[Rfam]
RNA sequence: GUGGGGCUUGGAUUUAUGAUGGGCCCAUCCCCUGGGCUUCUCAUAGGACCUCAUGCCAGAGCAAACUAGCCCCAAACCAUUGCCUGGCCUCUGUGACCGUACGCUGCUGGCACUGAAGCGGGCUACACAGUA
Numbered sequence: 001g002u003g004g005g006g007c008u009u010g011g012a013u014u015u016a017u018g019a020u021g022g023g024c025c026c027a028u029c030c031c032c033u034g035g036g037c038u039u040c041u042c043a044u045a046g047g048a049c050c051u052c053a054u055g056c057c058a059g060a061g062c063a064a065a066c067u068a069g070c071c072c073c074a075a076a077c078c079a080u081u082g083c084c085u086g087g088c089c090u091c092u093g094u095g096a097c098c099g100u101a102c103g104c105u106g107c108u109g110g111c112a113c114u115g116a117a118g119c120g121g122g123c124u125a126c127a128c129a130g131u132a
Base pairs, nucleotide, nucleotide: 001054002053004051005050006049014046015045016044017043018042019041021039022038023037024035025034067125068124069123070122071121072120078115079114083110084109085106086105087104088103090101

Source information
The family of this 132-nucleotide RNA sequence from Cebus imitator is "Small nucleolar RNA SNORA42/SNORA80 family". From the family's description: The members of this family belong to the H/ACA class of snoRNAs that guide the sites of modification of uridines to pseudouridines. Human ACA42 (SNORA42) was cloned from HeLa cells by immunoprecipitation with anti-GAR1 antibody. Its is predicted to guide the pseudouridylation of residues U109 and U572 of 18S rRNA. ACA42 shares the same host gene with ACA26, ACA46, ACA50. This family also includes mammalian snoRNA ACA67 (SNORA80) which was identified by computational screening and its expression in mouse experimentally verified by Northern blot and primer extension analysis. For this family Rfam cites "A computational screen for mammalian pseudouridylation guide H/ACA RNAs" (Schattner et al., RNA, 2006). Pairs were carried over by alignment from the consensus structure, which was predicted with RNAalifold. It is annotated as an H/ACA-box small nucleolar RNA. Rfam links the family to the GO terms nucleolus and RNA processing.